[Rfam]
Group II catalytic intron D1-D4-3: a 170-nucleotide sequence from Nesterenkonia alkaliphila. About the family: Group II introns are found in rRNA, tRNA and mRNA of organelles in fungi, plants and protists, and also in mRNA in bacteria. It scores 121 bits against the family's covariance model.

RNA sequence: UUCAUCGUGAGGUGGGGUGGGGAGGAAGCUGGUGGCAAAGCCUGGUUCUGAGGUACACGAAUCGCAUAUGAGGCGUCCCGGUUGGGGUAAGCCAGCCAGAGAUGGUGAUGCCCGUUCCACCAAGAACGGCUGGGGUGUAAAUGCGGCGGGGCCAGGUGAAAGUCAAUGUU
Numbered sequence: 001u002u003c004a005u006c007g008u009g010a011g012g013u014g015g016g017g018u019g020g021g022g023a024g025g026a027a028g029c030u031g032g033u034g035g036c037a038a039a040g041c042c043u044g045g046u047u048c049u050g051a052g053g054u055a056c057a058c059g060a061a062u063c064g065c066a067u068a069u070g071a072g073g074c075g076u077c078c079c080g081g082u083u084g085g086g087g088u089a090a091g092c093c094a095g096c097c098a099g100a101g102a103u104g105g106u107g108a109u110g111c112c113c114g115u116u117c118c119a120c121c122a123a124g125a126a127c128g129g130c131u132g133g134g135g136u137g138u139a140a141a142u143g144c145g146g147c148g149g150g151g152c153c154a155g156g157u158g159a160a161a162g163u164c165a166a167u168g169u170u
Stems, first nucleotide, its partner, number of pairs: 001016006028170001030168002035163002040157011062146006073138003077134007085113004091106004